This 66-nucleotide RNA sequence from Lederbergia galactosidilytica belongs to the Rfam family "Bacillaceae-1 RNA". The match comes from Rfam's covariance-model search (69 bits). Lineage of the source: Bacteria > Bacillati > Bacillota > Caryophanales > Lederbergia.
RNA sequence: CCUAAAGAUCAAAGGCUAAAUUCGCGACUUCCUGUCGCAACGCCUUUGUGACCUACGUCCUGUAGG
Numbered sequence: 001c002c003u004a005a006a007g008a009u010c011a012a013a014g015g016c017u018a019a020a021u022u023c024g025c026g027a028c029u030u031c032c033u034g035u036c037g038c039a040a041c042g043c044c045u046u047u048g049u050g051a052c053c054u055a056c057g058u059c060c061u062g063u064a065g066g
Stems, first nucleotide, its partner, number of pairs: 010048007024038005052066005